Y RNA: a 97-nucleotide RNA from Microcebus murinus. For this family Rfam cites "Conserved features of Y RNAs: a comparison of experimentally derived secondary structures" (Teunissen et al., Nucleic Acids Res, 2000). NCBI's taxonomy places the organism under Eukaryota, Eumetazoa, Chordata, Primates, Microcebus. It is annotated as a non-coding RNA gene.
RNA sequence: GGCUGGUCCAAGUGCAGUGGUGUUUACAACUAAUUGAUCACAAUCAGUUACAGAUUCCUUUGUUCCUUCUCCCACUGUUUCACUUGACUAGCCUUAA
Number, nucleotide and partner (000 for none) at each position: 001g093002g092003c091004u090005g089006g088007u087008c086009c000010a085011a084012g000013u000014g081015c000016a076017g075018u074019g073020g072021u000022g071023u000024u000025u000026a000027c000028a064029a063030c062031u000032a060033a059034u000035u000036g000037a000038u000039c000040a000041c000042a000043a000044u000045c000046a000047g000048u000049u000050a000051c000052a000053g000054a000055u000056u000057c000058c000059u033060u032061u000062g030063u029064u028065c000066c000067u000068u000069c000070u000071c022072c020073c019074a018075c017076u016077g000078u000079u000080u000081c014082a000083c000084u011085u010086g008087a007088c006089u005090a004091g003092c002093c001094u000095u000096a000097a000